Annotation:
A member of the RNA family "Molybdenum/Tungsten riboswitch aptamer (Moco RNA motif)" from Paramixta manurensis, 134 nucleotides long.

[Rfam]
RNA sequence: GCCGGAAAAUCACACUCUAGCCUUUGAACCUAAGUCGCAUGAUACGGUUCUCUGGCCGUAGCCUUGAGCUACCAGGGUGCAGAAAGAAAUGCCUGCAUCUCCCGUUAUUGGAAAGGUGUCCCGGUGCCACAAUU
Number, nucleotide and partner (000 for none) at each position: 001g000002c000003c000004g127005g000006a125007a000008a000009a000010u000011c000012a119013c118014a117015c116016u000017c115018u000019a000020g056021c055022c054023u000024u000025u000026g050027a049028a048029c047030c046031u000032a000033a000034g043035u042036c041037g000038c000039a000040u000041g036042a035043u034044a000045c000046g030047g029048u028049u027050c026051u000052c000053u000054g022055g021056c020057c000058g072059u071060a070061g069062c068063c000064u000065u000066g000067a000068g062069c061070u060071a059072c058073c000074a000075g100076g099077g098078u097079g096080c095081a094082g093083a000084a000085a090086g000087a000088a000089a000090u085091g000092c000093c082094u081095g080096c079097a078098u077099c076100u075101c111102c110103c000104g000105u000106u000107a000108u000109u000110g102111g101112a000113a000114a000115g017116g015117u014118g013119u012120c000121c000122c000123g000124g000125u006126g000127c004128c000129a000130c000131a000132a000133u000134u000